Description:
The family of this 426-nucleotide sequence from Pectobacterium carotovorum is "Soft rot Enterobacteriaceae Rev 72 asRNA". Rfam classes the family as an antisense RNA. The source organism's lineage runs through Bacteria, Pseudomonadati, Gammaproteobacteria, Pectobacterium and Pectobacterium carotovorum subsp. carotovorum. Gene Ontology term of the family: cellular response to starvation.

RNA sequence: UGAUUUGAAAUAAGCCAUGCUUGUAGGGUUAUCAGAAUAAAAACAGGUUAUAACUGUCUCGAUACCGGAAUAAACCAGUCAGAAAAGCGUUGUCAGAACCCAUACCGCCUUACCAACCUCAGGAAAAAGUAUAAGUUUUCUUAUUUCACAACUCAUUGGGCAAUAGCACAGCAUUCCGAGUCGAAAUGCAGAUUAAAUAUGUCAUUAUCACAGGGUAAUGGGAGGUGUUUCACGAAAACCGGGGAAAGCAAAUUUCCGCCUUACAAACACCGAAAUACGGGGUUCUGACAGCCGGUUUCAAAUAGGUAAAUCCCGACUUUUCAUGCCAUGAAUAAAGGACAAAACGCUGCGCCAUCAGUAUGACGGCACAGCGUUUUGUGUUAUUGCCUAUAUUCAGACUAAUACGGUAACGAAUGGCUUUACUUC
Dot-bracket structure: ...(((....(.(.....((((((....((((....))))..))))))..........(.(((...(........).))).)....(((.(((........))).)))..........).)...))).....((((((((((((.............(.((....)).).(.(((....(.......((((......((((.(((.......(..((..(...((((((((..((((...(.......)...)))).)......)))))))...........)..).)...).(....)...(.((......)).)......))).)))).....((.(((((((((.(.(((.(((...))).))).).))))))))).)).)))).......).....))).).)))).))).)))))......